[Rfam]
Nucleotides: 104
Stems, first nucleotide, its partner, number of pairs: 004101005011094004016088004021083001023081008032072004
Number, partner (000 for none) and nucleotide at each position: 001000g002000c003000u004101c005100u006099g007098a008097a009000g010000g011094u012093a013092a014091g015000a016088g017087u018086u019085g020000u021083a022000g023081g024080a025079a026078a027077c028076u029075g030074a031000a032072c033071u034070c035069u036000u037000c038000c039000u040000u041000g042000u043000c044000u045000g046000u047000g048000a049000c050000a051000g052000a053000c054000u055000g056000a057000c058000a059000g060000a061000c062000a063000g064000u065000u066000u067000c068000u069035g070034g071033a072032g073000u074030u075029c076028a077027g078026u079025u080024u081023u082000c083021u084000c085019c086018a087017a088016c089000a090000u091014c092013u093012u094011a095000u096000c097008u098007u099006c100005a101004g102000u103000g104000c

The record is a 104-nucleotide RNA from Dichanthelium oligosanthes, which matches "MIR2275 microRNA precursor family" in Rfam.
The organism belongs to Dichanthelium, within Eukaryota.
Rfam 15.1 lists 785 matches to the family in 111 species.